[Rfam]
RNA sequence: UGACCAAGUGGAAUAUUUUGUUCUCCAAAAGAGAAUGAACUCCUGUCGGAACGCUUGGUUAGGUACUAAAUCAAAUAAACUUGAAUCUGUUAAAUUCGAAAGAUAUUAUACUUAGCUCAAGCUUCCGACGGUACAUAAUGAAAGGCAGUUAAUACCUCACGGUUACAUGAAUGAGGUGACAUGAUGCUCGCAAGGCUGAUUGUUUUUAUCGCAGAGUGAAUUUAGAUUUCUAGCGGAAUCGAACGGGUCGCAAGCUCGGAAGGAUCGAAAUGAUAGAGUAAUUAUGUAUGACAGGUCUACCGCAUGACCUUAUAAAAUGCACUGCUGAUAGGAUACUUGGGAGACUAAGUGGAUACGCCCUAAGGACAAGAGUCCAUACGGGUAGUAAAAGACCUAUUAUCGUUAGCCAUAAUCUCAGGCU
Number, nucleotide and partner (000 for none) at each position: 001u061002g060003a059004c058005c057006a056007a055008g054009u053010g043011g042012a041013a000014u000015a000016u000017u039018u038019u037020g036021u035022u034023c033024u032025c031026c000027a000028a000029a000030a000031g025032a024033g023034a022035a021036u020037g019038a018039a017040c000041u012042c011043c010044u000045g129046u128047c127048g126049g125050a124051a123052c000053g009054c008055u007056u006057g005058g004059u003060u002061a001062g000063g000064u000065a000066c000067u000068a000069a000070a000071u000072c000073a000074a000075a000076u000077a000078a000079a000080c000081u000082u000083g000084a000085a000086u000087c000088u000089g000090u000091u000092a000093a000094a000095u000096u000097c000098g000099a000100a000101a000102g000103a000104u000105a000106u000107u000108a000109u000110a000111c000112u000113u000114a000115g191116c190117u000118c000119a000120a000121g000122c000123u051124u050125c049126c048127g047128a046129c045130g000131g289132u288133a287134c286135a285136u284137a283138a282139u281140g000141a000142a000143a000144g000145g325146c324147a323148g322149u321150u000151a000152a000153u000154a177155c176156c175157u174158c173159a172160c169161g168162g000163u000164u000165a000166c000167a000168u161169g160170a000171a000172u159173g158174a157175g156176g155177u154178g204179a203180c202181a201182u000183g000184a000185u000186g196187c195188u194189c000190g116191c115192a000193a000194g188195g187196c186197u000198g000199a000200u000201u181202g180203u179204u178205u000206u000207u275208a274209u273210c272211g271212c000213a000214g000215a000216g000217u000218g000219a000220a000221u262222u261223u260224a000225g240226a239227u238228u237229u000230c000231u000232a000233g000234c000235g000236g000237a228238a227239u226240c225241g000242a000243a000244c259245g000246g257247g255248u254249c000250g000251c000252a000253a000254g248255c247256u000257c246258g000259g244260a223261a222262g221263g000264a000265u000266c000267g000268a000269a000270a000271u211272g210273a209274u208275a207276g000277a000278g000279u000280a000281a139282u138283u137284a136285u135286g134287u133288a132289u131290g000291a000292c000293a000294g000295g000296u000297c000298u000299a000300c000301c000302g320303c319304a318305u317306g000307a000308c000309c000310u000311u000312a000313u000314a000315a000316a000317a305318u304319g303320c302321a149322c148323u147324g146325c145326u000327g398328a397329u396330a000331g394332g393333a000334u351335a350336c349337u348338u347339g346340g345341g000342a000343g000344a000345c340346u339347a338348a337349g336350u335351g334352g414353a413354u412355a000356c000357g386358c000359c382360c381361u380362a000363a000364g000365g000366a000367c000368a000369a000370g000371a000372g000373u000374c000375c000376a000377u000378a000379c000380g361381g360382g359383u000384a000385g000386u357387a000388a000389a000390a000391g000392a000393c332394c331395u000396a329397u328398u327399a000400u000401c000402g000403u000404u000405a000406g420407c419408c418409a000410u000411a000412a354413u353414c352415u000416c000417a000418g408419g407420c406421u000
The record is a 421-nucleotide RNA sequence from Vibrio phage 70E35.2, which matches "Giant, ornate, lake- and Lactobacillales-derived (GOLLD) RNA" in Rfam. The literature on the family includes a 2009 paper in Nature by Weinberg et al., "Exceptional structured noncoding RNAs revealed by bacterial metagenome analysis". The family's RNA type in Rfam is non-coding RNA gene. A search with the family's covariance model found it, with a score of 176 bits.